[Rfam]
RNA sequence: AGCCGCGUGGUAAGCUCACAGCGAACUAUUCUUUCGCCUUUUACUAAAGAAUAUCGUGUGCUUGCCACUAUAAGCGGCAUAUACCAAAUUUUUUAAGGGCCUCUCCUUUAUUGGUGAU
Numbered sequence: 001a002g003c004c005g006c007g008u009g010g011u012a013a014g015c016u017c018a019c020a021g022c023g024a025a026c027u028a029u030u031c032u033u034u035c036g037c038c039u040u041u042u043a044c045u046a047a048a049g050a051a052u053a054u055c056g057u058g059u060g061c062u063u064g065c066c067a068c069u070a071u072a073a074g075c076g077g078c079a080u081a082u083a084c085c086a087a088a089u090u091u092u093u094u095a096a097g098g099g100c101c102u103c104u105c106c107u108u109u110a111u112u113g114g115u116g117a118u
Stems, first nucleotide, its partner, number of pairs: 003077004008067008017058002027053008096118001102117002105114002
Dot-bracket structure: ..((((.((((((((.((........((((((((...........))))))))...)).))))))))......))))..................(.....((.((......)).)))